[Rfam]
RNA sequence: GAGUCUAACGCGUGCGCGAGUCAGAGGGUGGUUACGAAACCCCGUGGCGCAAUGAAAGUGAGGGCCGGCGCGCGCCGGCCGAGGUGGGAUCCCGGCCCCCCCGCGGGGCGGGGCGCACCACCGGCCCGUCUCGCCCGCAGCGUCGGGGAGGUGGAGCGUGAGCGCACGCGAUAGGACCCGAAAGAUGGUGAACUAUGCCUGGGCAGGGCGAAGCCAGAGGAAACUCUGGUGGAGGCCCGCAGCGGUCCUGACGUGCAAAUCGGUCGUCCGACCUGGGUAUAGGGGCGAAAGACUAAUCGAACCAUCUAGUAGCUGGUU
Number, nucleotide and partner (000 for none) at each position: 001g000002a000003g000004u000005c174006u173007a172008a000009c170010g169011c168012g167013u166014g165015c164016g163017c162018g000019a000020g048021u047022c046023a000024g000025a000026g042027g041028g040029u039030g000031g000032u000033u000034a000035c000036g000037a000038a000039a029040c028041c027042c026043c000044g000045u000046g022047g021048c020049g000050c000051a000052a059053u058054g000055a000056a000057a000058g053059u052060g000061a000062g000063g000064g000065c000066c000067g000068g000069c000070g000071c000072g000073c000074g000075c000076c000077g000078g000079c000080c000081g000082a000083g122084g121085u120086g119087g118088g000089a000090u000091c113092c112093c000094g000095g000096c000097c000098c000099c000100c000101c000102c000103g000104c000105g000106g000107g000108g000109c000110g000111g000112g092113g091114c000115g000116c000117a000118c087119c086120a085121c084122c083123g000124g157125c156126c154127c153128g152129u151130c150131u149132c000133g000134c000135c145136c000137g000138c000139a000140g000141c000142g000143u000144c000145g135146g000147g000148g000149a131150g130151g129152u128153g127154g126155a000156g125157c124158g000159u000160g000161a000162g017163c016164g015165c014166a013167c012168g011169c010170g009171a000172u007173a006174g005175g000176a000177c316178c315179c000180g313181a000182a000183a000184g306185a305186u304187g303188g302189u301190g000191a000192a000193c282194u281195a280196u279197g278198c277199c276200u275201g274202g273203g272204c270205a000206g238207g237208g236209c235210g000211a000212a000213g230214c229215c228216a227217g226218a225219g224220g000221a000222a000223a000224c219225u218226c217227u216228g215229g214230u213231g000232g000233a000234g000235g209236c208237c207238c206239g000240c000241a000242g267243c266244g265245g264246u000247c263248c262249u000250g261251a260252c000253g000254u000255g000256c000257a000258a000259a000260u251261c250262g248263g247264u245265c244266g243267u242268c000269c000270g204271a000272c203273c202274u201275g200276g199277g198278u197279a196280u195281a194282g193283g000284g294285g293286c000287g000288a000289a000290a000291g000292a000293c285294u284295a000296a000297u000298c000299g000300a000301a189302c188303c187304a186305u185306c184307u000308a000309g000310u000311a000312g000313c180314u000315g178316g177317u000318u000
RNA: Eukaryotic large subunit ribosomal RNA, nucleotides 903 to 1220
Organism: Gasterosteus aculeatus